About this RNA:
Shown here is a 62-nucleotide RNA sequence, a member of the family "S4-Fusobacteriales ribosomal protein leader". Rfam's curators put it in the seed alignment. It is annotated as a cis-regulatory leader. Pairs were carried over by alignment from the consensus structure, which is taken from published work.
[Rfam]
RNA sequence: CUGUAAAGAUAUGGUGAGCUGUAGAGCCAUCCCCAAAAUAGGAAUUGGGACAUAUCGAGGAA
Dot-bracket structure: .......(((((((((.(((....)))))).(((((........))))).))))))......